[Rfam]
RNA: Small nucleolar RNA SNORD22
RNA sequence: UCCAAGUGAUGACACCCGCACGUGUCUUACGCCCUGUGUCGACGACAGAACCUGCAAAGGUUGUCCCACUGGUGUUGCCAGGGCAACAAGGGGACAGCUGGUUGGGGUUACCAACUGUCUGAUGGGA
Numbered sequence: 001u002c003c004a005a006g007u008g009a010u011g012a013c014a015c016c017c018g019c020a021c022g023u024g025u026c027u028u029a030c031g032c033c034c035u036g037u038g039u040c041g042a043c044g045a046c047a048g049a050a051c052c053u054g055c056a057a058a059g060g061u062u063g064u065c066c067c068a069c070u071g072g073u074g075u076u077g078c079c080a081g082g083g084c085a086a087c088a089a090g091g092g093g094a095c096a097g098c099u100g101g102u103u104g105g106g107g108u109u110a111c112c113a114a115c116u117g118u119c120u121g122a123u124g125g126g127a
Stems, first nucleotide, its partner, number of pairs: 001126004